mir-9193 microRNA precursor family: a 73-nucleotide RNA from Myotis brandtii.
[Rfam]
RNA sequence: UUUGUGGAGGAGUGUCCCUCAGCCCAGAUUGCGAGAGGGCUCAGGCCAAGCUGAGGGACCCUACUGGUGCAUG
Numbered sequence: 001u002u003u004g005u006g007g008a009g010g011a012g013u014g015u016c017c018c019u020c021a022g023c024c025c026a027g028a029u030u031g032c033g034a035g036a037g038g039g040c041u042c043a044g045g046c047c048a049a050g051c052u053g054a055g056g057g058a059c060c061c062u063a064c065u066g067g068u069g070c071a072u073g
Stems, first nucleotide, its partner, number of pairs: 003071002006068001008065002011062002014059010027046001029044003033040001
A search with the family's covariance model found it, with a score of 60 bits. Taxonomically the source falls in Myotis (Eukaryota, Deuterostomia, Dipnotetrapodomorpha, Laurasiatheria).